[Rfam]
RNA sequence: CUCUGCGCCGCACACUCUGCGCAGGGCGAAAGGAG
Number, nucleotide and partner (000 for none) at each position: 001c026002u025003c024004u023005g022006c021007g020008c019009c000010g000011c000012a000013c000014a000015c000016u000017c000018u000019g008020c007021g006022c005023a004024g003025g002026g001027c000028g000029a000030a000031a000032g000033g000034a000035g000
Shown here is a 35-nucleotide RNA, a member of the family "L31-Firmicutes ribosomal protein leader". The family is grouped with related families in Rfam's "Ribosomal Protein L31 Leader clan". Pairs were carried over by alignment from the consensus structure, which is taken from published work.